[Rfam]
RNA sequence: CCUGGCCUGUGGUACAGACCUAUUUAUGCACGACAUUUUGAGUAAAGUAGUUCAAAUUUAAAGCGUUAUCCUGGAUAGCUCUUCACUGACGAAUUUCCUUUCUAGUGCCUCCAUAAGUAACUGAUAACCGGCUAUUACAUGCCCAUGGCGGCUUAAAUUUUUUUUGAAGGAAAUCGACAUGUCUAACAUGAUCAAAGGUCAAGUGAAGUGGUUCAACGAGUCUAAAGGUUUUGGUUUUAUCACUCCUGCAGACGGUAGCAAAGAUGUGUUUGUACACUUCUCUGCUAUUCAGAACCAAGGCUUCAAGACCCUGGCAGAAGGCCAGACAGUACAGUUCUCUAUUGAGAACGGUGCUAAAGGUCCAUCAGCGGCUAACGUUACCGCUAUCUAAUCAGUUUUUGGCUGAUUAAAGAACCGCUUUGGCGGUUGGCCAAAAUGAUUAUU
Dot-bracket structure: ...((.(((.....))).)).......(.(...............((..(.((...(((.....(.(..(.(.((.(.((...((.((.(......(((((...((....................))............(((......))).............))))).....).)))).((............))...........))))).).).).).)))......)).))).....).)....((.((.......((.....))....(((..((((((..((((..................)))).....)).)))).)))........)).))......((.(((...)))))...(((((.........)))))....(((.((((...)))).)))....((.((.((((((.....)))))).)).))...
cspA thermoregulator: a 444-nucleotide sequence from Serratia sp. DD3. The family has 15 seed sequences and 2,094 matches in Rfam 15.1. The organism belongs to Serratia, within Bacteria. Rfam links the family to the GO terms response to temperature stimulus and regulation of translation. Rfam classes the family as an RNA thermoregulator. On this family, see Giuliodori et al., Mol Cell 2010: "The cspA mRNA is a thermosensor that modulates translation of the cold-shock protein CspA". The match comes from Rfam's covariance-model search (199 bits).